[Rfam]
The record is a 137-nucleotide RNA sequence from Actinoplanes sp. TBRC 11911, which matches "c-di-AMP riboswitch aptamer (ydaO/yuaA leader)" in Rfam.

RNA sequence: GAACUGCUCUCCCCCGAGCGGCCAGGUGUCGCGGCGUACCGGGGAACCGGUUACUUGGGGUGAAUCCGCGAUUGCGGUAGGGCCUUCUUCCCGCCCGAAUCCGUCAGCUAACCCGGUAGGCGGCCAAGCGGAAGAAA
Numbered sequence: 001g002a003a004c005u006g007c008u009c010u011c012c013c014c015c016g017a018g019c020g021g022c023c024a025g026g027u028g029u030c031g032c033g034g035c036g037u038a039c040c041g042g043g044g045a046a047c048c049g050g051u052u053a054c055u056u057g058g059g060g061u062g063a064a065u066c067c068g069c070g071a072u073u074g075c076g077g078u079a080g081g082g083c084c085u086u087c088u089u090c091c092c093g094c095c096c097g098a099a100u101c102c103g104u105c106a107g108c109u110a111a112c113c114c115g116g117u118a119g120g121c122g123g124c125c126a127a128g129c130g131g132a133a134g135a136a137a
Stems, first nucleotide, its partner, number of pairs: 005036004038117006048057002058102003066077004080096004